The record is a 71-nucleotide sequence from Struthidea cinerea, which matches "Small nucleolar RNA SNORD34" in Rfam.
Pairs were carried over by alignment from the consensus structure, which was predicted with PFOLD.
The match comes from Rfam's covariance-model search (51 bits).
NCBI's taxonomy places the organism under Eukaryota, Bilateria, Aves, Neognathae, Struthidea.
Gene Ontology terms of the family: RNA processing and nucleolus.
By type it is a C/D-box small nucleolar RNA.
Clan: SNORD34 clan.
For this family Rfam cites "The high diversity of snoRNAs in plants: identification and comparative study of 120 snoRNA genes from Oryza sativa" (Chen et al., Nucleic Acids Res, 2003).
[Rfam]
RNA sequence: AGUGUCGAUGAUGUCACUUUUACCUACAUUGUUUGACUCUCCGUGAGAAAAACUCCAAAUCCUGAGACACU
Numbered sequence: 001a002g003u004g005u006c007g008a009u010g011a012u013g014u015c016a017c018u019u020u021u022a023c024c025u026a027c028a029u030u031g032u033u034u035g036a037c038u039c040u041c042c043g044u045g046a047g048a049a050a051a052a053c054u055c056c057a058a059a060u061c062c063u064g065a066g067a068c069a070c071u
Stems, first nucleotide, its partner, number of pairs: 001071001003069004